Annotation:
The family of this 65-nucleotide sequence from Yersinia ruckeri is "ClpQY promoter". The sequence is in the family's curated seed alignment.

[Rfam]
RNA sequence: CCCCGUCUUGUGUUGAACAACACAAGACGGGGACUCAUUCCGUCUGCAACGAGGGUUCGCUCGUG
Numbered sequence: 001c002c003c004c005g006u007c008u009u010g011u012g013u014u015g016a017a018c019a020a021c022a023c024a025a026g027a028c029g030g031g032g033a034c035u036c037a038u039u040c041c042g043u044c045u046g047c048a049a050c051g052a053g054g055g056u057u058c059g060c061u062c063g064u065g
Stems, first nucleotide, its partner, number of pairs: 001032014